[Rfam]
RNA sequence: GCCGCUCUAGCCCAACGGGCAGAGGCACCGCGCCGAGAUCGCGGCCAGUGGAGGUUCGACUCCUCCGAGCGGCA
Numbered sequence: 001g002c003c004g005c006u007c008u009a010g011c012c013c014a015a016c017g018g019g020c021a022g023a024g025g026c027a028c029c030g031c032g033c034c035g036a037g038a039u040c041g042c043g044g045c046c047a048g049u050g051g052a053g054g055u056u057c058g059a060c061u062c063c064u065c066c067g068a069g070c071g072g073c074a
Stems, first nucleotide, its partner, number of pairs: 001073007010026003028044005050066005
Dot-bracket structure: (((((((..(((...........))).(((((.......))))).....(((((.......)))))))))))).
Record summary: This 74-nucleotide RNA sequence from Pseudofrankia asymbiotica belongs to the Rfam family "tRNA". It is annotated as a transfer RNA. Pairs were carried over by alignment from the consensus structure, which is taken from published work. The organism belongs to Pseudofrankia, within Bacteria.